[Rfam]
The record is a 53-nucleotide sequence, which matches "chrB-b RNA" in Rfam.
RNA sequence: UCGGGCUCCCCAGCAGUCGCCCGGCUUCUUUCAGGCAUCCGCCCAAGCACUGC
Number, nucleotide and partner (000 for none) at each position: 001u024002c023003g022004g021005g020006c019007u000008c000009c000010c000011c000012a000013g053014c052015a051016g050017u049018c000019g006020c005021c004022c003023g002024g001025c000026u000027u000028c000029u000030u000031u000032c000033a000034g043035g042036c041037a000038u000039c000040c000041g036042c035043c034044c000045a000046a000047g000048c000049a017050c016051u015052g014053c013

Pairs were carried over by alignment from the consensus structure, which is taken from published work. It is one of the family's seed sequences. By type it is a cis-regulatory element.